[Rfam]
Rfam assigns this 159-nucleotide RNA from Sporobacter termitidis to the family "glmS glucosamine-6-phosphate activated ribozyme aptamer".
Its family is annotated with catalytic activity and regulation of gene expression in the Gene Ontology.
This entry contains a glucosamine-6-phosphate activated ribozyme that is found in the mRNA for GlmS. GlmS is an enzyme that uses fructose-6-phosphate and glutamine to generate glucosamine-6-phosphate. The ribozyme catalyses self cleavage of the glmS mRNA that is thought to regulate GlmS activity.
NCBI's taxonomy places the organism under Bacteria, Bacillati, Bacillota, Oscillospiraceae, Sporobacter termitidis.
The base pairs follow the family's consensus structure, which is taken from published work.
RNA sequence: UAAAAUUUAGAAGCGCCAGACUUCACGCAGAGCGCGGAGUUGACGAGGGCGGGGUUUAUCGAAGUAUUCGGCGGGUGCCCCGUGCUGCGGUCCAUCAGCAUUACAGGUUUUACAAAUCCUCAAGCAAUUGACGGGACAAAAUAAACCUGAUUGGGCCUU
Number, nucleotide and partner (000 for none) at each position: 001u000002a000003a000004a000005a000006u000007u000008u000009a000010g000011a000012a000013g000014c000015g000016c000017c000018a000019g000020a040021c039022u038023u037024c036025a000026c034027g000028c032029a000030g000031a000032g028033c000034g026035c000036g024037g023038a022039g021040u020041u000042g000043a000044c000045g000046a000047g000048g000049g000050c082051g081052g080053g079054g078055u000056u000057u000058a000059u071060c070061g069062a068063a000064g000065u000066a000067u000068u062069c061070g060071g059072c000073g000074g000075g000076u000077g000078c054079c053080c052081c051082g050083u100084g099085c098086u097087g096088c000089g000090g000091u000092c000093c000094a000095u000096c087097a086098g085099c084100a083101u000102u000103a000104c149105a148106g147107g146108u145109u144110u143111u000112a000113c000114a000115a000116a000117u000118c134119c133120u131121c130122a129123a128124g000125c000126a000127a000128u123129u122130g121131a120132c000133g119134g118135g000136a000137c000138a000139a000140a000141a000142u000143a110144a109145a108146c107147c106148u105149g104150a000151u000152u000153g000154g000155g000156c000157c000158u000159u000